[Rfam]
RNA sequence: CCUGUACGUGCUGUGUUCAUCCACAUAAGAAAAUCUCUUUUAAUGAGGAGUGAUACAGUUGUGAACUCUCUAGAGCCAUAAUUAGAGCAAACUAAUUGAAGUUGUGUUUUGACACACUUUCCAAAUUCACGGGUACUGCAUGACAUAUUCACAACACUGCUGCAGCACACCGUGGUGACAGCAGAAUCAUUAGGCUAAUCACACUCAUUUGCAUUCUGAUCACGCCAGUGAAGGCCCUUAAACGCUGCCUCCUUUGCUUGCAAAGUUUCCACUGGCAGAUAUUAACAGUAAUUAUUGGUACUUUAGUGAAUCUGUGACGUUAAGGA
Numbered sequence: 001c002c003u004g005u006a007c008g009u010g011c012u013g014u015g016u017u018c019a020u021c022c023a024c025a026u027a028a029g030a031a032a033a034u035c036u037c038u039u040u041u042a043a044u045g046a047g048g049a050g051u052g053a054u055a056c057a058g059u060u061g062u063g064a065a066c067u068c069u070c071u072a073g074a075g076c077c078a079u080a081a082u083u084a085g086a087g088c089a090a091a092c093u094a095a096u097u098g099a100a101g102u103u104g105u106g107u108u109u110u111g112a113c114a115c116a117c118u119u120u121c122c123a124a125a126u127u128c129a130c131g132g133g134u135a136c137u138g139c140a141u142g143a144c145a146u147a148u149u150c151a152c153a154a155c156a157c158u159g160c161u162g163c164a165g166c167a168c169a170c171c172g173u174g175g176u177g178a179c180a181g182c183a184g185a186a187u188c189a190u191u192a193g194g195c196u197a198a199u200c201a202c203a204c205u206c207a208u209u210u211g212c213a214u215u216c217u218g219a220u221c222a223c224g225c226c227a228g229u230g231a232a233g234g235c236c237c238u239u240a241a242a243c244g245c246u247g248c249c250u251c252c253u254u255u256g257c258u259u260g261c262a263a264a265g266u267u268u269c270c271a272c273u274g275g276c277a278g279a280u281a282u283u284a285a286c287a288g289u290a291a292u293u294a295u296u297g298g299u300a301c302u303u304u305a306g307u308g309a310a311u312c313u314g315u316g317a318c319g320u321u322a323a324g325g326a
Base pairs, nucleotide, nucleotide: 014319015318016317017316020310022308023307024306027303028302029301035050036049037048038047039046040045055295057293058292059291060290061289062288066075067074068073085259086258087257088256089255098120099119100118101117103116104115105114106113107112131237132236133235136230161177162176163175165173181225182224194212195211197209198208199207

Annotation: Rfam assigns this 326-nucleotide RNA sequence from Serilophus lunatus to the family "ncRNA Repressor of NFAT (nuclear factor of activated T cells)". The match comes from Rfam's covariance-model search (274 bits). On this family, see Willingham et al., Science 2005: "A strategy for probing the function of noncoding RNAs finds a repressor of NFAT". Pairs were carried over by alignment from the consensus structure.